[Rfam]
RNA sequence: AUGCUCACAAGAACACUCAUCCUGCCCUGUGGCUGUGAUGGGUGCUGGGAAACAUGAGCUAGAGCAUGAGUAUUGCUUUGGGAGUGUCCCAUUCCAGGCCAUAUGGGACACUACAGUUUCCAAUACAACA
Numbered sequence: 001a002u003g004c005u006c007a008c009a010a011g012a013a014c015a016c017u018c019a020u021c022c023u024g025c026c027c028u029g030u031g032g033c034u035g036u037g038a039u040g041g042g043u044g045c046u047g048g049g050a051a052a053c054a055u056g057a058g059c060u061a062g063a064g065c066a067u068g069a070g071u072a073u074u075g076c077u078u079u080g081g082g083a084g085u086g087u088c089c090c091a092u093u094c095c096a097g098g099c100c101a102u103a104u105g106g107g108a109c110a111c112u113a114c115a116g117u118u119u120c121c122a123a124u125a126c127a128a129c130a
Base pairs, nucleotide, nucleotide: 003059004058005057006056007055013043014042018040019039020038021037025032026031070126072124073123074122075121078116079115080114083112084111085110086109087108088107089106090105091102092101

The record is a 130-nucleotide sequence from Camarhynchus parvulus, which matches "Small Cajal body specific RNA 23" in Rfam. Rfam links the family to the GO terms RNA processing, Cajal body and nucleolus. About the family: scaRNAs are a specific class of small nuclear RNAs which localise to the Cajal bodies and guide the modification of RNA polymerase II transcribed spliceosomal RNAs U1, U2, U4, U5 and U12. A search with the family's covariance model found it, with a score of 67 bits. The literature on the family includes a 2002 paper in EMBO J by Darzacq et al., "Cajal body-specific small nuclear RNAs: a novel class of 2'-O-methylation and pseudouridylation guide RNAs". The family's RNA type in Rfam is small Cajal body RNA. Rfam 15.1 lists 399 matches to the family in 374 species.